[Rfam]
RNA: mir-8517 microRNA precursor family
RNA sequence: UUACUAGACGCUUUAGCUAUUGAACUGUUUUGUCACUCUCUGACAGAGAACAAUUUGUUCUUUGACAGAGAGGGACAACAGCUCAAUAGCUAAAGCGUCUGGUAAG
Numbered sequence: 001u002u003a004c005u006a007g008a009c010g011c012u013u014u015a016g017c018u019a020u021u022g023a024a025c026u027g028u029u030u031u032g033u034c035a036c037u038c039u040c041u042g043a044c045a046g047a048g049a050a051c052a053a054u055u056u057g058u059u060c061u062u063u064g065a066c067a068g069a070g071a072g073g074g075a076c077a078a079c080a081g082c083u084c085a086a087u088a089g090c091u092a093a094a095g096c097g098u099c100u101g102g103u104a105a106g
Base pairs, nucleotide, nucleotide: 001105002104003103004102005101006100011095012094013093014092015091016090017089018088019087020086021085022084023083025081026080027079028078029069030068031067032066033065034064035063049059050058051057052056